A member of the RNA family "Small nucleolar RNA SNORD59" from Phascolarctos cinereus, 77 nucleotides long. The match comes from Rfam's covariance-model search (72 bits). Rfam classes the family as a C/D-box small nucleolar RNA. Its Rfam clan is "SNORD59 clan".
RNA sequence: UCUUUGGUGAUGAUUUUUAACUUGAUGACUUUCGUUCUUCUGAGUUUGCUGAAGCCAAAAUUUGAAUCUGAGCAAGA
Numbered sequence: 001u002c003u004u005u006g007g008u009g010a011u012g013a014u015u016u017u018u019a020a021c022u023u024g025a026u027g028a029c030u031u032u033c034g035u036u037c038u039u040c041u042g043a044g045u046u047u048g049c050u051g052a053a054g055c056c057a058a059a060a061u062u063u064g065a066a067u068c069u070g071a072g073c074a075a076g077a
Stems, first nucleotide, its partner, number of pairs: 001077003005072001
Pairs were carried over by alignment from the consensus structure, which was predicted with ILM.